Shown here is a 101-nucleotide sequence from Plenodomus lingam, a member of the family "Small nucleolar RNA Z13/snr52". The match comes from Rfam's covariance-model search (81 bits). The base pairs follow the family's consensus structure, which was predicted with PFOLD. By type it is a C/D-box small nucleolar RNA.

RNA sequence: CAGAGUCCGAUGAUUAAACAUUUUUCGGAUGUAAAUCAUAACAAUAUCCGAGAGCGCAAAACCGUGUGGAUAUUUUCCGUUGCCUUCCUUCUGAGGUCUCA
Number, nucleotide and partner (000 for none) at each position: 001c000002a000003g100004a099005g098006u000007c000008c000009g000010a000011u000012g000013a000014u000015u000016a000017a000018a000019c000020a000021u000022u000023u000024u000025u000026c079027g078028g077029a076030u000031g000032u000033a000034a000035a000036u000037c000038a000039u000040a000041a000042c000043a000044a000045u000046a000047u000048c000049c000050g000051a000052g000053a000054g000055c000056g000057c000058a000059a000060a000061a000062c000063c000064g000065u000066g000067u000068g000069g000070a000071u000072a000073u000074u000075u000076u029077c028078c027079g026080u000081u000082g000083c000084c000085u000086u000087c000088c000089u000090u000091c000092u000093g000094a000095g000096g000097u000098c005099u004100c003101a000